[Rfam]
RNA sequence: AUGAUCCCCGUGGGAGAGCGCACGUUGCCACCGCUUCGUGCCGCCGAAGGAGCAACCGCCCCGGAAACUCUCAGGCCACCGGACCGCGGGGGGAUG
Numbered sequence: 001a002u003g004a005u006c007c008c009c010g011u012g013g014g015a016g017a018g019c020g021c022a023c024g025u026u027g028c029c030a031c032c033g034c035u036u037c038g039u040g041c042c043g044c045c046g047a048a049g050g051a052g053c054a055a056c057c058g059c060c061c062c063g064g065a066a067a068c069u070c071u072c073a074g075g076c077c078a079c080c081g082g083a084c085c086g087c088g089g090g091g092g093g094a095u096g
Stems, first nucleotide, its partner, number of pairs: 006091008020041004043076003046072002050070003056064002
Glycine riboswitch aptamer: a 96-nucleotide RNA from Vineibacter terrae. From the family's description: This family represents the bacterial glycine riboswitch. Glycine riboswitches usually consist of two metabolite-binding aptamers domains with similar structures in tandem. The aptamers cooperatively bind glycine to regulate the expression of downstream genes. In Bacillus subtilis, this riboswitch is found upstream of the gcvT operon which controls glycine degradation. It scores 69 bits against the family's covariance model. The literature on the family includes a 2004 paper in Science by Mandal et al., "A glycine-dependent riboswitch that uses cooperative binding to control gene expression".